[Rfam]
RNA sequence: CGUCCGCAUCUUCCACUACGGAUCGUCGGGCACGUACCUGCCCGUGGAAAGGAAUGU
Numbered sequence: 001c002g003u004c005c006g007c008a009u010c011u012u013c014c015a016c017u018a019c020g021g022a023u024c025g026u027c028g029g030g031c032a033c034g035u036a037c038c039u040g041c042c043c044g045u046g047g048a049a050a051g052g053a054a055u056g057u
Base pairs, nucleotide, nucleotide: 009051011049012048013047014046015045027044028043029042030041031040032039